[Rfam]
Annotation: Bacterial large subunit ribosomal RNA: a 335-nucleotide part of an RNA from Parasphaerochaeta coccoides. Rfam's curators put it in the seed alignment.
RNA sequence: CGGAAGAACUCACGUCAAGGAACUCGGCAAAAUGCAUGCGUAACUUCGGGAGAAGCAUGGCCCGCGAAGGCGGGUUGCAGAGAAAUGGCCCAAGCGACUGUUUACCAAAAACACAGGUCCAUGCGAACCGGCGACGGGAAGUAUAUGGACUGACACCUGCCCGGUGCCGGAAGGUCAAGAGGAGCCGUGAGCCGCAAGGCGAGGCGGCGAAUUCAAGCCCCGGUAAACGGCGGCCGUAACUAUAACGGUCCUAAGGUAGCGAAAUUCCUUGUCGGGUAAGUUCCGACCCGCACGAAUGGUGUAACGAUUUGGGCGCUGUCUCGACGUGAGAUCCG
Numbered sequence: 001c002g003g004a005a006g007a008a009c010u011c012a013c014g015u016c017a018a019g020g021a022a023c024u025c026g027g028c029a030a031a032a033u034g035c036a037u038g039c040g041u042a043a044c045u046u047c048g049g050g051a052g053a054a055g056c057a058u059g060g061c062c063c064g065c066g067a068a069g070g071c072g073g074g075u076u077g078c079a080g081a082g083a084a085a086u087g088g089c090c091c092a093a094g095c096g097a098c099u100g101u102u103u104a105c106c107a108a109a110a111a112c113a114c115a116g117g118u119c120c121a122u123g124c125g126a127a128c129c130g131g132c133g134a135c136g137g138g139a140a141g142u143a144u145a146u147g148g149a150c151u152g153a154c155a156c157c158u159g160c161c162c163g164g165u166g167c168c169g170g171a172a173g174g175u176c177a178a179g180a181g182g183a184g185c186c187g188u189g190a191g192c193c194g195c196a197a198g199g200c201g202a203g204g205c206g207g208c209g210a211a212u213u214c215a216a217g218c219c220c221c222g223g224u225a226a227a228c229g230g231c232g233g234c235c236g237u238a239a240c241u242a243u244a245a246c247g248g249u250c251c252u253a254a255g256g257u258a259g260c261g262a263a264a265u266u267c268c269u270u271g272u273c274g275g276g277u278a279a280g281u282u283c284c285g286a287c288c289c290g291c292a293c294g295a296a297u298g299g300u301g302u303a304a305c306g307a308u309u310u311g312g313g314c315g316c317u318g319u320c321u322c323g324a325c326g327u328g329a330g331a332u333c334c335g
Stems, first nucleotide, its partner, number of pairs: 001335004009330008018321003035059005044049001060075006076080001088314007095306002099113003116151008124141001128137003154301004159231003164228002166224005173219003179213002184208005191200002232250006251255001261288001271287006